[Rfam]
RNA sequence: UUUGGGAAAUGAUGAUAACAUAAAAACUGAUUGGAAAAGUCACCAGCAAUGCUGAAAUUAUUAAUUUGCACGUCAGUCUGAUCCCAGG
Numbered sequence: 001u002u003u004g005g006g007a008a009a010u011g012a013u014g015a016u017a018a019c020a021u022a023a024a025a026a027c028u029g030a031u032u033g034g035a036a037a038a039g040u041c042a043c044c045a046g047c048a049a050u051g052c053u054g055a056a057a058u059u060a061u062u063a064a065u066u067u068g069c070a071c072g073u074c075a076g077u078c079u080g081a082u083c084c085c086a087g088g
Stems, first nucleotide, its partner, number of pairs: 001088007